[Rfam]
RNA: mir-551 microRNA precursor family
RNA sequence: CGACCCUGGAAAUCAAGUGUCGGUGGAGCCUGUGGGUGCGAUUCAAGGCGACCCACACUUGGUUUCCAGGAUCU
Numbered sequence: 001c002g003a004c005c006c007u008g009g010a011a012a013u014c015a016a017g018u019g020u021c022g023g024u025g026g027a028g029c030c031u032g033u034g035g036g037u038g039c040g041a042u043u044c045a046a047g048g049c050g051a052c053c054c055a056c057a058c059u060u061g062g063u064u065u066c067c068a069g070g071a072u073c074u
Base pairs, nucleotide, nucleotide: 002073003072005070006069007068009066010065011064012063013062014061016059017058022053023052024051028049029048030047031046